ctRNA: a 46-nucleotide sequence from Paenochrobactrum gallinarii.
RNA sequence: AGAAGGCUUUCACGACGGAAACGUUUUGGGAGCUUUUUUCUUUUGC
Numbered sequence: 001a002g003a004a005g006g007c008u009u010u011c012a013c014g015a016c017g018g019a020a021a022c023g024u025u026u027u028g029g030g031a032g033c034u035u036u037u038u039u040c041u042u043u044u045g046c
Stems, first nucleotide, its partner, number of pairs: 004035008014025004

The family has 10 seed sequences and 245 matches in Rfam 15.1. NCBI's taxonomy places the organism under Bacteria, Pseudomonadati, Pseudomonadota, Brucellaceae, Paenochrobactrum. Pairs were carried over by alignment from the consensus structure, which is taken from published work. Rfam's curators write: This family represents a group of ctRNAs (or counter-transcribed RNAs) from p42d and related plasmids. ctRNAs are small, highly structured, antisense sequences which are involved in negative regulation. Members of this family are known to bind to the mRNA of repC causing translational repression.